RNA: c-di-GMP-I-GGC riboswitch aptamer
RNA sequence: AGAGAAAAUGGCAAACUUAUCGAAAGGUAAGGACGCAAAACCACGGGUCUAAAGUAUUGAUUUUAAUGCGAUGAUAGCCGGGUUACCUCAU
Numbered sequence: 001a002g003a004g005a006a007a008a009u010g011g012c013a014a015a016c017u018u019a020u021c022g023a024a025a026g027g028u029a030a031g032g033a034c035g036c037a038a039a040a041c042c043a044c045g046g047g048u049c050u051a052a053a054g055u056a057u058u059g060a061u062u063u064u065a066a067u068g069c070g071a072u073g074a075u076a077g078c079c080g081g082g083u084u085a086c087c088u089c090a091u
Stems, first nucleotide, its partner, number of pairs: 001091001003088002011036002016031006034077001039084004044080003047075003